[Rfam]
RNA sequence: CUUCUUUUCGGAGAUGACAUUCCUCCUUAUAACCGCCGUUAUGGCUGAUGAUGUCUACGUUCAC
Numbered sequence: 001c002u003u004c005u006u007u008u009c010g011g012a013g014a015u016g017a018c019a020u021u022c023c024u025c026c027u028u029a030u031a032a033c034c035g036c037c038g039u040u041a042u043g044g045c046u047g048a049u050g051a052u053g054u055c056u057a058c059g060u061u062c063a064c
Stems, first nucleotide, its partner, number of pairs: 010026004016055006035045003